[Rfam]
RNA sequence: GGUUCAGGUUCGGUCUGGAUACUGUAGGGGUCCUGGUCCUGAUAAGGCCGAACCUGUC
Numbered sequence: 001g002g003u004u005c006a007g008g009u010u011c012g013g014u015c016u017g018g019a020u021a022c023u024g025u026a027g028g029g030g031u032c033c034u035g036g037u038c039c040u041g042a043u044a045a046g047g048c049c050g051a052a053c054c055u056g057u058c
Base pairs, nucleotide, nucleotide: 027055028054029053031051034050035049036048037047038046

Shown here is a 58-nucleotide RNA from Synechococcus sp. RS9916, a member of the family "psbNH RNA". Lineage of the source: Bacteria > Bacillati > Cyanobacteriota > Synechococcaceae > Synechococcus. It is one of the family's seed sequences. It is annotated as a cis-regulatory element.